[Rfam]
RNA sequence: GGUCUACGCGCCGACCUAACAAUGCGCGACGGCUGGUUACGGUAACGACCUAAAAACUUCCAA
Numbered sequence: 001g002g003u004c005u006a007c008g009c010g011c012c013g014a015c016c017u018a019a020c021a022a023u024g025c026g027c028g029a030c031g032g033c034u035g036g037u038u039a040c041g042g043u044a045a046c047g048a049c050c051u052a053a054a055a056a057c058u059u060c061c062a063a
Base pairs, nucleotide, nucleotide: 001016002015003014004013008027009026010025011024035050036049037048038047